This 322-nucleotide part of an RNA from Medioppia subpectinata belongs to the Rfam family "Eukaryotic large subunit ribosomal RNA".
[Rfam]
RNA sequence: GAGUCUAACAUGUGCGCGAGUCACUCGGUCUUGUAUAGGCCAGAGAGGCGCAAUGAAAGUAAAGUUGAUUGAGUUACGAUCCCUAUGCGGUCACUCCUCGUGGGUGACGGUGGGGCGCAGUAACAGCCCGCCAAUUUCGCAUAUUGUCGAUGUGGCGGAGUUGUAGCGUACACGUUGGUACCCGAAAGAUGGUGAACUAUGCCUGGGCAAGACGAAGCCAGAGGAAACUCUGGUGGAGGUCUGUAGCGAUUCUGACGUGCAAAUCGAUCGUCAGACCUGGGUAUAGGGGCGAAAGACUAAUCGAACCAUCUAGUAGCUGGUU
Numbered sequence: 001g002a003g004u005c006u007a008a009c010a011u012g013u014g015c016g017c018g019a020g021u022c023a024c025u026c027g028g029u030c031u032u033g034u035a036u037a038g039g040c041c042a043g044a045g046a047g048g049c050g051c052a053a054u055g056a057a058a059g060u061a062a063a064g065u066u067g068a069u070u071g072a073g074u075u076a077c078g079a080u081c082c083c084u085a086u087g088c089g090g091u092c093a094c095u096c097c098u099c100g101u102g103g104g105u106g107a108c109g110g111u112g113g114g115g116c117g118c119a120g121u122a123a124c125a126g127c128c129c130g131c132c133a134a135u136u137u138c139g140c141a142u143a144u145u146g147u148c149g150a151u152g153u154g155g156c157g158g159a160g161u162u163g164u165a166g167c168g169u170a171c172a173c174g175u176u177g178g179u180a181c182c183c184g185a186a187a188g189a190u191g192g193u194g195a196a197c198u199a200u201g202c203c204u205g206g207g208c209a210a211g212a213c214g215a216a217g218c219c220a221g222a223g224g225a226a227a228c229u230c231u232g233g234u235g236g237a238g239g240u241c242u243g244u245a246g247c248g249a250u251u252c253u254g255a256c257g258u259g260c261a262a263a264u265c266g267a268u269c270g271u272c273a274g275a276c277c278u279g280g281g282u283a284u285a286g287g288g289g290c291g292a293a294a295g296a297c298u299a300a301u302c303g304a305a306c307c308a309u310c311u312a313g314u315a316g317c318u319g320g321u322u
Stems, first nucleotide, its partner, number of pairs: 005178005011172007020049003025044002027041004053060002073124005081115006126161002128158006138149002181320002184317001188310006197286011208274001210242004217234007246271004251267002254265002288298002
Lineage of the source: Eukaryota > Opisthokonta > Arachnida > Brachypylina > Medioppia.